The record is a 594-nucleotide part of an RNA, which matches "Bacterial small subunit ribosomal RNA" in Rfam. The literature on the family includes a 2001 paper in Science by Yusupov et al., "Crystal structure of the ribosome at 5.5 A resolution".
[Rfam]
RNA sequence: GAACGCUAUGUAAAUGCUUGACACAUGCUAAUCGAACGUCAAUAUUUAAUUUAUAUAAAUUAUGUAUAUUGAAGUGGUGUACAGGUGAGUAAGUGGUAUUAUGGCUACCUAAGAGUAAGGCAAAAUAAAUCCCUUAUAAUAACAAUUUAUUAUUAUUUAUUAAUACUAGAUCUAACCACCCCAGUUGUCGAUUAUAUCUAAAAGGUUAGAUAUAAAGGUUAAUAAUAUUAAGAAUAAAUGUGUUUAAAAGAAAUAGUAUUUCGCUCUUAGUUGAUUAUUAAUAACCAUCGGAUAAGUAGUAAGUAUGGUAAUGGCAUAUUUAGCUUAUGUCCGUAGUCAAGACUGAGAGGUCUAUUGACCACACUGGGUCUGAAAAAACCCCAGUGCGUGUAGUACAGCAGUGAGGAAUUUUGGUCAAUGGCCUAACGGCUGAACCAGCAACUUGCAGGAAUGAGAGUUAAUAUAAUAAGUUAUUAACUUGCUUGACUAGGUCUUAUAAAGUUCUGGAUAAAGCUUAUUAUGAAAACUUUAUAUCCAUAGGUCUCGACCAAAUCUUGUGCCAGCAGUCGCGGUAAGACAAGGGAGACGAGUGUU
Numbered sequence: 001g002a003a004c005g006c007u008a009u010g011u012a013a014a015u016g017c018u019u020g021a022c023a024c025a026u027g028c029u030a031a032u033c034g035a036a037c038g039u040c041a042a043u044a045u046u047u048a049a050u051u052u053a054u055a056u057a058a059a060u061u062a063u064g065u066a067u068a069u070u071g072a073a074g075u076g077g078u079g080u081a082c083a084g085g086u087g088a089g090u091a092a093g094u095g096g097u098a099u100u101a102u103g104g105c106u107a108c109c110u111a112a113g114a115g116u117a118a119g120g121c122a123a124a125a126u127a128a129a130u131c132c133c134u135u136a137u138a139a140u141a142a143c144a145a146u147u148u149a150u151u152a153u154u155a156u157u158u159a160u161u162a163a164u165a166c167u168a169g170a171u172c173u174a175a176c177c178a179c180c181c182c183a184g185u186u187g188u189c190g191a192u193u194a195u196a197u198c199u200a201a202a203a204g205g206u207u208a209g210a211u212a213u214a215a216a217g218g219u220u221a222a223u224a225a226u227a228u229u230a231a232g233a234a235u236a237a238a239u240g241u242g243u244u245u246a247a248a249a250g251a252a253a254u255a256g257u258a259u260u261u262c263g264c265u266c267u268u269a270g271u272u273g274a275u276u277a278u279u280a281a282u283a284a285c286c287a288u289c290g291g292a293u294a295a296g297u298a299g300u301a302a303g304u305a306u307g308g309u310a311a312u313g314g315c316a317u318a319u320u321u322a323g324c325u326u327a328u329g330u331c332c333g334u335a336g337u338c339a340a341g342a343c344u345g346a347g348a349g350g351u352c353u354a355u356u357g358a359c360c361a362c363a364c365u366g367g368g369u370c371u372g373a374a375a376a377a378a379c380c381c382c383a384g385u386g387c388g389u390g391u392a393g394u395a396c397a398g399c400a401g402u403g404a405g406g407a408a409u410u411u412u413g414g415u416c417a418a419u420g421g422c423c424u425a426a427c428g429g430c431u432g433a434a435c436c437a438g439c440a441a442c443u444u445g446c447a448g449g450a451a452u453g454a455g456a457g458u459u460a461a462u463a464u465a466a467u468a469a470g471u472u473a474u475u476a477a478c479u480u481g482c483u484u485g486a487c488u489a490g491g492u493c494u495u496a497u498a499a500a501g502u503u504c505u506g507g508a509u510a511a512a513g514c515u516u517a518u519u520a521u522g523a524a525a526a527c528u529u530u531a532u533a534u535c536c537a538u539a540g541g542u543c544u545c546g547a548c549c550a551a552a553u554c555u556u557g558u559g560c561c562a563g564c565a566g567u568c569g570c571g572g573u574a575a576g577a578c579a580a581g582g583g584a585g586a587c588g589a590g591u592g593u594u
Stems, first nucleotide, its partner, number of pairs: 002594006009447005015440002017405001022403003026400003031078003036075002039072002047062006085362003096286001098282004105273001109270007117135004141244004145239007250262003289333003294330001295325003300322008336359004341352004364384005386394002411437001413436003419432005453482001455480002463474004486538001488533002491530001500518001541587005553582005563570002
Notes: It scores 577 bits against the family's covariance model.